[Rfam]
RNA: c-di-GMP-I riboswitch aptamer
RNA sequence: UAUUGCCAAGGGCAAACCCGGUGAAAGCCGGGGGCGCAAAGCUACAGGGUCUAAGGCGUUUGAUAAAACGCUACGAUAGCCUGGCUGCCAAA
Numbered sequence: 001u002a003u004u005g006c007c008a009a010g011g012g013c014a015a016a017c018c019c020g021g022u023g024a025a026a027g028c029c030g031g032g033g034g035c036g037c038a039a040a041g042c043u044a045c046a047g048g049g050u051c052u053a054a055g056g057c058g059u060u061u062g063a064u065a066a067a068a069c070g071c072u073a074c075g076a077u078a079g080c081c082u083g084g085c086u087g088c089c090a091a092a
Base pairs, nucleotide, nucleotide: 012037013036017032018031019030020029021028022027040086041085042084043083046082047081048080049077050076051075056071057070058069059068060067061066